[Rfam]
RNA sequence: AUCGAAAGAAGAGGUCGCCUCAAUGAUGAGUAACCCUGGUAAGAUGAUUAAGCAUCUGGGACCCAGGGAGAAAGGUAACGAGGCCGAAAUGACUGCAGACUUAAUUCUGCACGAUUUGGGACUUGGUUGAAUAAGCCAAGGACUGUCGCAAUUACGGUUGCGGAGCGCUAUCUACGAU
Numbered sequence: 001a002u003c004g005a006a007a008g009a010a011g012a013g014g015u016c017g018c019c020u021c022a023a024u025g026a027u028g029a030g031u032a033a034c035c036c037u038g039g040u041a042a043g044a045u046g047a048u049u050a051a052g053c054a055u056c057u058g059g060g061a062c063c064c065a066g067g068g069a070g071a072a073a074g075g076u077a078a079c080g081a082g083g084c085c086g087a088a089a090u091g092a093c094u095g096c097a098g099a100c101u102u103a104a105u106u107c108u109g110c111a112c113g114a115u116u117u118g119g120g121a122c123u124u125g126g127u128u129g130a131a132u133a134a135g136c137c138a139a140g141g142a143c144u145g146u147c148g149c150a151a152u153u154a155c156g157g158u159u160g161c162g163g164a165g166c167g168c169u170a171u172c173u174a175c176g177a178u
Base pairs, nucleotide, nucleotide: 006173008171010169011168017084018083019082020081021080024077025076034068035067036066037065038064039063088117089116094111095110096109097108098107099106118144119143122140123139124138125137126136127135128134146163147162148161149160150159151158152157
This 178-nucleotide RNA from Pediococcus acidilactici belongs to the Rfam family "Lysine riboswitch aptamer". It scores 94 bits against the family's covariance model. Taxonomically the source falls in Pediococcus acidilactici (Bacteria, Bacilli, Lactobacillales, Lactobacillaceae). Gene Ontology term of the family: lysine biosynthetic process. Riboswitches are metabolite binding domains within certain messenger RNAs that serve as precision sensors for their corresponding targets.